[Rfam]
RNA sequence: AUGAAUUCUCAGGGCGGAGUGAAAUUCUCCACCGGCGGUGUAUCAGUUCCUACUCGUUAGAAAAUGAUAAGCCCGCGAGCGCUCGAUUUAUCGAGGUCAGCAGAUCUGGUGCCUUAGUUAUCGCUAACACUCCAGAGCCGACGGUUAAAGUCCGGAUGUAAGAGAAUAGAA
Numbered sequence: 001a002u003g004a005a006u007u008c009u010c011a012g013g014g015c016g017g018a019g020u021g022a023a024a025u026u027c028u029c030c031a032c033c034g035g036c037g038g039u040g041u042a043u044c045a046g047u048u049c050c051u052a053c054u055c056g057u058u059a060g061a062a063a064a065u066g067a068u069a070a071g072c073c074c075g076c077g078a079g080c081g082c083u084c085g086a087u088u089u090a091u092c093g094a095g096g097u098c099a100g101c102a103g104a105u106c107u108g109g110u111g112c113c114u115u116a117g118u119u120a121u122c123g124c125u126a127a128c129a130c131u132c133c134a135g136a137g138c139c140g141a142c143g144g145u146u147a148a149a150g151u152c153c154g155g156a157u158g159u160a161a162g163a164g165a166a167u168a169g170a171a
Stems, first nucleotide, its partner, number of pairs: 005167006017029003031151002033140002035076004071138002079101002105136005142154003